[Rfam]
This 108-nucleotide RNA sequence from Thalassotalea mangrovi belongs to the Rfam family "Ribosomal S15 leader". Its family is annotated with regulation of translation, ncRNA-mediated in the Gene Ontology. Taxonomically the source falls in Thalassotalea (Bacteria, Pseudomonadati, Pseudomonadota, Alteromonadales). Rfam classes the family as a cis-regulatory leader. A search with the family's covariance model found it, with a score of 71 bits.
RNA sequence: CGGUCAGUCUGAAUUAGUGAUCGGUCUGACUUAGUUUAUUUGGAGUUUAUUAUGUCGCUAACGGCACAACAAAAAGCUGAAAUCGUUAAAGAAUAUGCACAAUCUGAA
Numbered sequence: 001c002g003g004u005c006a007g008u009c010u011g012a013a014u015u016a017g018u019g020a021u022c023g024g025u026c027u028g029a030c031u032u033a034g035u036u037u038a039u040u041u042g043g044a045g046u047u048u049a050u051u052a053u054g055u056c057g058c059u060a061a062c063g064g065c066a067c068a069a070c071a072a073a074a075a076g077c078u079g080a081a082a083u084c085g086u087u088a089a090a091g092a093a094u095a096u097g098c099a100c101a102a103u104c105u106g107a108a
Stems, first nucleotide, its partner, number of pairs: 007026001009024004040061004045056001